[Rfam]
RNA: Histone 3' UTR stem-loop
RNA sequence: AAAACGGCUCUUUUAAGAGCCACCCAAUGCAAUUAAAAAGCAUAAU
Numbered sequence: 001a002a003a004a005c006g007g008c009u010c011u012u013u014u015a016a017g018a019g020c021c022a023c024c025c026a027a028u029g030c031a032a033u034u035a036a037a038a039a040g041c042a043u044a045a046u
Stems, first nucleotide, its partner, number of pairs: 006021006